RNA sequence: GUCUGGGCGCAGUGGUUUAUCGAUCCCUUCCUUGCCUUGUGCUGAUCCGGGGAGCGGUGGUUCAAGUGUGUCGAUCUUGCUGCAGCAGCUUUGUAGACAAAGCGGGAAUCGGUCGAUAAACCUCUGCAUCCAGCU
Numbered sequence: 001g002u003c004u005g006g007g008c009g010c011a012g013u014g015g016u017u018u019a020u021c022g023a024u025c026c027c028u029u030c031c032u033u034g035c036c037u038u039g040u041g042c043u044g045a046u047c048c049g050g051g052g053a054g055c056g057g058u059g060g061u062u063c064a065a066g067u068g069u070g071u072c073g074a075u076c077u078u079g080c081u082g083c084a085g086c087a088g089c090u091u092u093g094u095a096g097a098c099a100a101a102g103c104g105g106g107a108a109u110c111g112g113u114c115g116a117u118a119a120a121c122c123u124c125u126g127c128a129u130c131c132a133g134c135u
Base pairs, nucleotide, nucleotide: 003133004132005131006130007129009127010126011125012124014122015121016120017119018118019117020116021115022114023113024112025111028108029107030106031105032104034103035102037100038099039098

This 135-nucleotide RNA sequence from Dichanthelium oligosanthes belongs to the Rfam family "MIR162_2 microRNA precursor family". It scores 122 bits against the family's covariance model. NCBI's taxonomy places the organism under Eukaryota, Euphyllophyta, Liliopsida, Paniceae, Dichanthelium. Its Rfam clan is "MIR167 microRNA precursor clan". The family has 5 seed sequences and 43 matches in Rfam 15.1.